A member of the RNA family "c-di-AMP riboswitch aptamer (ydaO/yuaA leader)" from Stanieria cyanosphaera, 135 nucleotides long.
Lineage of the source: Bacteria > Pleurocapsales > Dermocarpellaceae > Stanieria > Stanieria cyanosphaera.
RNA sequence: GUUGAUAACAAGCCUAAUUCUGAAACAGAAACGGGGGAACCAAAUUGGGGGCUAAUCUCUAUAGUUAUCAGUAGAGAAGGACAUCUCUCAGUCCUAGCCCGUCAGCUAACCUCGUCGGCUUUGGGAGGAAACUGA
Dot-bracket structure: ..........((((...(((.......)))((((((....(......)(((.....((((((........))))))..((((........))))...))).........)))))).))))...............
Overview:
It scores 89 bits against the family's covariance model.